[Rfam]
RNA sequence: UAAGUCCAGUGUCAGGCGUCUGUGCAGACUGCAGACUUGUCUGCAAGGUUGCACAGACAUCUGACACGACAAUAGUAAUCGAGAAGAAACGCGAUAGCGUGGAUUCGAGAUUACUAUAGCAUUGCGAGAGCGUUAGCGAAGCAAUGCGUAGGACUUA
Numbered sequence: 001u002a003a004g005u006c007c008a009g010u011g012u013c014a015g016g017c018g019u020c021u022g023u024g025c026a027g028a029c030u031g032c033a034g035a036c037u038u039g040u041c042u043g044c045a046a047g048g049u050u051g052c053a054c055a056g057a058c059a060u061c062u063g064a065c066a067c068g069a070c071a072a073u074a075g076u077a078a079u080c081g082a083g084a085a086g087a088a089a090c091g092c093g094a095u096a097g098c099g100u101g102g103a104u105u106c107g108a109g110a111u112u113a114c115u116a117u118a119g120c121a122u123u124g125c126g127a128g129a130g131c132g133u134u135a136g137c138g139a140a141g142c143a144a145u146g147c148g149u150a151g152g153a154c155u156u157a
Base pairs, nucleotide, nucleotide: 001157002156003155004154005153006152007151009067010066011065012064015061016060018058019057020056021055022054023053024052025051026050027049029047030046031044032043033042034041035040073116074115075114076113077112078111079110080109083106084105085104089100090099091098092097119147120146121145122144123143124142125141130137131136
Rfam assigns this 157-nucleotide RNA sequence from Oribacterium sp. C9 to the family "Clostridiales-1 RNA". The organism belongs to Oribacterium, within Bacteria. Pairs were carried over by alignment from the consensus structure, which is taken from published work. A search with the family's covariance model found it, with a score of 98 bits.